The family of this 75-nucleotide sequence from Myotis myotis is "mir-9229 microRNA precursor family".
RNA sequence: AGACAUCCUUAUGGGGCAGAACUUGCUUCAGUGGGGCUUUGAUGCUCACUGAAUCUGUCCCCUGAGUCUGUCUCU
Numbered sequence: 001a002g003a004c005a006u007c008c009u010u011a012u013g014g015g016g017c018a019g020a021a022c023u024u025g026c027u028u029c030a031g032u033g034g035g036g037c038u039u040u041g042a043u044g045c046u047c048a049c050u051g052a053a054u055c056u057g058u059c060c061c062c063u064g065a066g067u068c069u070g071u072c073u074c075u
Base pairs, nucleotide, nucleotide: 001073002072003071004070005069008066009065010064011063013061014060015059016058017057018056021054028052029051030050031049032048033047034046035045036043
The base pairs follow the family's consensus structure, which was predicted with RNAalifold. It scores 74 bits against the family's covariance model.